[Rfam]
RNA sequence: ACCUGUUUUGUUGGUGGUCAUUUAACCAUGCUUCCAUCGAUGGGUGCAUGGUUUAUGGCAGAGUGUGAUGCCAUGAACUCAUCAUGGUCAUGCAUGUGUGCAUGGUUAGAUGACCAUCAGCAAACAUGUU
Numbered sequence: 001a002c003c004u005g006u007u008u009u010g011u012u013g014g015u016g017g018u019c020a021u022u023u024a025a026c027c028a029u030g031c032u033u034c035c036a037u038c039g040a041u042g043g044g045u046g047c048a049u050g051g052u053u054u055a056u057g058g059c060a061g062a063g064u065g066u067g068a069u070g071c072c073a074u075g076a077a078c079u080c081a082u083c084a085u086g087g088u089c090a091u092g093c094a095u096g097u098g099u100g101c102a103u104g105g106u107u108a109g110a111u112g113a114c115c116a117u118c119a120g121c122a123a124a125c126a127u128g129u130u
Stems, first nucleotide, its partner, number of pairs: 005125004010121022
Dot-bracket structure: ....((((.((((((((((((((((((((((....................................................................)))))))))))))))))))))))))).....

About this RNA:
This 130-nucleotide sequence from Saccharum sp. belongs to the Rfam family "MIR827 microRNA precursor family". The family has 5 seed sequences and 57 matches in Rfam 15.1. The organism belongs to Saccharum, within Eukaryota. The family's consensus secondary structure was predicted with RNAalifold.